This 126-nucleotide RNA sequence from Piscinibacter sp. HJYY11 belongs to the Rfam family "ZMP/ZTP riboswitch aptamer (pfl RNA motif)". The base pairs follow the family's consensus structure, which is taken from published work. It scores 49 bits against the family's covariance model. The source organism's lineage runs through Bacteria, Pseudomonadota, Betaproteobacteria, Sphaerotilaceae and Piscinibacter.
[Rfam]
RNA sequence: CACCCGCUGCGCAACUGGCGAUGGGGCCCCGGUCAAGACCGCGGAGCCUGAGGUGGUGAACCACUGGGAAGCGCGGCCCGCUCCAGAUGUUUGGAGCCGGUUCCGCCGUUCGCCUGGGCAGCCCUG
Number, nucleotide and partner (000 for none) at each position: 001c000002a000003c080004c000005c000006g077007c076008u075009g074010c073011g072012c071013a000014a000015c068016u067017g114018g113019c112020g111021a110022u000023g000024g000025g000026g000027c000028c000029c000030c000031g000032g000033u000034c000035a000036a000037g000038a000039c000040c000041g000042c000043g000044g000045a000046g000047c000048c000049u000050g000051a000052g000053g064054u063055g062056g061057u000058g000059a000060a000061c056062c055063a054064c053065u000066g000067g016068g015069a000070a000071g012072c011073g010074c009075g008076g007077c006078c000079c000080g003081c000082u000083c000084c000085a000086g000087a000088u000089g000090u000091u000092u000093g000094g000095a000096g000097c000098c000099g000100g000101u000102u000103c121104c000105g119106c118107c117108g000109u000110u021111c020112g019113c018114c017115u000116g000117g107118g106119c105120a000121g103122c000123c000124c000125u000126g000